[Rfam]
RNA sequence: UGACCACCCAAUCAUGGGUUAAGGCCAUACGGACAGCCGGGUCAACUGCCGA
Numbered sequence: 001u002g003a004c005c006a007c008c009c010a011a012u013c014a015u016g017g018g019u020u021a022a023g024g025c026c027a028u029a030c031g032g033a034c035a036g037c038c039g040g041g042u043c044a045a046c047u048g049c050c051g052a
Stems, first nucleotide, its partner, number of pairs: 001044005006019005
A member of the RNA family "Streptococcus sRNA SpF59 (ldcC RNA)" from Pseudoflavonifractor sp. AF19-9AC, 52 nucleotides long.
By type it is a small RNA.
For this family Rfam cites "Control of virulence by small RNAs in Streptococcus pneumoniae" (Mann et al., PLoS Pathog, 2012).
The source organism's lineage runs through Bacteria, Bacillati, Bacillota, Oscillospiraceae and Pseudoflavonifractor.